A member of the RNA family "Actinobacteria sRNA Ms_IGR-5" from Streptomyces scopuliridis, 194 nucleotides long. The match comes from Rfam's covariance-model search (86 bits). Pairs were carried over by alignment from the consensus structure.
RNA sequence: ACACUGAAAGGAGGUGAUUCGGAAGUGAUUUCUUUCCGGACUCGUGAGGUGGCUGCGGGCUGACGGCCCGUUGUCGCACUCAGUGCGGAGCCGGUAACCGCCGGCCCAAUCCAAAGCAGUCACCGCCCCGCGGGCUCGCCGGUACGUCCGGCCGGCUUCUCUUCGGAGGAACCCGAGCCCGCGGGGUACUGCUU
Numbered sequence: 001a002c003a004c005u006g007a008a009a010g011g012a013g014g015u016g017a018u019u020c021g022g023a024a025g026u027g028a029u030u031u032c033u034u035u036c037c038g039g040a041c042u043c044g045u046g047a048g049g050u051g052g053c054u055g056c057g058g059g060c061u062g063a064c065g066g067c068c069c070g071u072u073g074u075c076g077c078a079c080u081c082a083g084u085g086c087g088g089a090g091c092c093g094g095u096a097a098c099c100g101c102c103g104g105c106c107c108a109a110u111c112c113a114a115a116g117c118a119g120u121c122a123c124c125g126c127c128c129c130g131c132g133g134g135c136u137c138g139c140c141g142g143u144a145c146g147u148c149c150g151g152c153c154g155g156c157u158u159c160u161c162u163u164c165g166g167a168g169g170a171a172c173c174c175g176a177g178c179c180c181g182c183g184g185g186g187u188a189c190u191g192c193u194u
Base pairs, nucleotide, nucleotide: 014056015055016054018052058106059105060104061103062102064100066099068094069093070092125187126186127185128184129183130182131181132180133179134178135177136176138156139155140154141153142152143151